Rfam assigns this 58-nucleotide RNA from Nocardioides mesophilus to the family "msiK RNA". The match comes from Rfam's covariance-model search (54 bits).
Nucleotides: 058
Base pairs, nucleotide, nucleotide: 009050010049012047013046014045015044026043027042028041029040030039031038
Number, partner (000 for none) and nucleotide at each position: 001000u002000g003000u004000c005000u006000a007000c008000u009050c010049c011000a012047u013046u014045u015044a016000c017000a018000c019000g020000g021000a022000u023000c024000g025000u026043c027042c028041g029040g030039c031038a032000c033000g034000u035000u036000c037000c038031u039030g040029c041028c042027g043026g044015u045014g046013a047012a048000g049010g050009g051000a052000g053000u054000c055000a056000c057000c058000u